[Rfam]
RNA sequence: CCGCAGGCUCCAGCGUAGCGGGGCCUGGCGUGGCCCUCGCUACUCCUGUAGCGCUGCCAGAGUAUCCCGGGGCCGUUUGAGGCCUCUCCCGGCUCUUCCCGGGGGCGGUUAUAGAAACCCCGAACACCU
Numbered sequence: 001c002c003g004c005a006g007g008c009u010c011c012a013g014c015g016u017a018g019c020g021g022g023g024c025c026u027g028g029c030g031u032g033g034c035c036c037u038c039g040c041u042a043c044u045c046c047u048g049u050a051g052c053g054c055u056g057c058c059a060g061a062g063u064a065u066c067c068c069g070g071g072g073c074c075g076u077u078u079g080a081g082g083c084c085u086c087u088c089c090c091g092g093c094u095c096u097u098c099c100c101g102g103g104g105g106c107g108g109u110u111a112u113a114g115a116a117a118c119c120c121c122g123a124a125c126a127c128c129u
Base pairs, nucleotide, nucleotide: 003057004056005055007054008053016042017041018040021036022035023034024033025032068122069121070120071119072118083108084107086105087104088103090101091100092099
Dot-bracket structure: ..(((.((.......(((..(((((......)))))...)))..........)))))..........(((((..........((.(((.(((......))).))).)).........))))).......